[Rfam]
Rfam assigns this 158-nucleotide RNA sequence from Saccharibacillus brassicae to the family "FMN riboswitch aptamer (RFN element)".
RNA sequence: AAGGAUCUUCGGGGUAGGGUGAAAUUCCCGACCGGCGGUAAUGGUUCGCUUACGCGAACUUGGCCCGCGACUCCCGCGGCGUCUUCGAGAAGAAGCCGCGGGACUGAUCUGGUGAGAUUCCAGAGCCGACGGUACAGUCCGGAUGGGAGAAGAUCAAG
Number, nucleotide and partner (000 for none) at each position: 001a000002a000003g000004g155005a154006u153007c152008u151009u150010c149011g000012g000013g000014g000015u000016a000017g029018g028019g027020u000021g000022a000023a000024a000025u000026u000027c019028c018029c017030g000031a138032c137033c128034g127035g068036c067037g066038g065039u000040a000041a000042u000043g000044g000045u000046u000047c000048g000049c000050u000051u000052a000053c000054g000055c000056g000057a000058a000059c000060u000061u000062g000063g126064c125065c038066c037067g036068c035069g000070a000071c000072u103073c102074c101075c100076g099077c098078g097079g096080c095081g000082u000083c000084u000085u000086c000087g000088a000089g000090a000091a000092g000093a000094a000095g080096c079097c078098g077099c076100g075101g074102g073103a072104c000105u000106g000107a000108u124109c123110u122111g121112g120113u000114g000115a000116g000117a000118u000119u000120c112121c111122a110123g109124a108125g064126c063127c034128g033129a000130c141131g140132g139133u000134a000135c000136a000137g032138u031139c132140c131141g130142g000143a000144u000145g000146g000147g000148a000149g010150a009151a008152g007153a006154u005155c004156a000157a000158g000
About this RNA:
The organism belongs to Saccharibacillus, within Bacteria.